RNA: Purine riboswitch aptamer
Organism: Fructobacillus pseudoficulneus
RNA sequence: ACAAUUUAACAGAAAUUUACAGAUAUAUCGCUGGAAAAUGGCCAGCAGUCUCUACCACGCCCCAAAAGUCGUGACUAUCCGUGAGUGCCAACUAAAG
Numbered sequence: 001a002c003a004a005u006u007u008a009a010c011a012g013a014a015a016u017u018u019a020c021a022g023a024u025a026u027a028u029c030g031c032u033g034g035a036a037a038a039u040g041g042c043c044a045g046c047a048g049u050c051u052c053u054a055c056c057a058c059g060c061c062c063c064a065a066a067a068g069u070c071g072u073g074a075c076u077a078u079c080c081g082u083g084a085g086u087g088c089c090a091a092c093u094a095a096a097g
Base pairs, nucleotide, nucleotide: 018083019082020081022079023078024077025076030046031045032044033043034042056073057072058071059070061068